[Rfam]
RNA sequence: GAGGGAGUAGCCGAAAACCCUUACAAGAGUAGGCA
Dot-bracket structure: .((((....[[[.....))))..........]]].
Numbered sequence: 001g002a003g004g005g006a007g008u009a010g011c012c013g014a015a016a017a018c019c020c021u022u023a024c025a026a027g028a029g030u031a032g033g034c035a
Stems, first nucleotide, its partner, number of pairs: 002021004010034003